[Rfam]
SAH (S-adenosyl-L-homocysteine) riboswitch aptamer: a 119-nucleotide RNA sequence from Halopseudomonas xinjiangensis. The source organism's lineage runs through Bacteria, Pseudomonadota, Gammaproteobacteria, Pseudomonadales and Halopseudomonas.
RNA sequence: CCGACCGAGGGGCGCUGCAGCGAAGAUUGAGAACGGCCUCGCCCCUGGGACGGACCCAGCAACUCUCUCUUCGUCAGGCUCGGCCGGACUGAAUCAUGAAACAACCGCGCCCAUUCGCU
Numbered sequence: 001c002c003g004a005c006c007g008a009g010g011g012g013c014g015c016u017g018c019a020g021c022g023a024a025g026a027u028u029g030a031g032a033a034c035g036g037c038c039u040c041g042c043c044c045c046u047g048g049g050a051c052g053g054a055c056c057c058a059g060c061a062a063c064u065c066u067c068u069c070u071u072c073g074u075c076a077g078g079c080u081c082g083g084c085c086g087g088a089c090u091g092a093a094u095c096a097u098g099a100a101a102c103a104a105c106c107g108c109g110c111c112c113a114u115u116c117g118c119u
Stems, first nucleotide, its partner, number of pairs: 002086002005083004021073006

The family's consensus secondary structure is taken from published work.
For this family Rfam cites "Riboswitches that sense S-adenosylhomocysteine and activate genes involved in coenzyme recycling" (Wang et al., Mol Cell, 2008).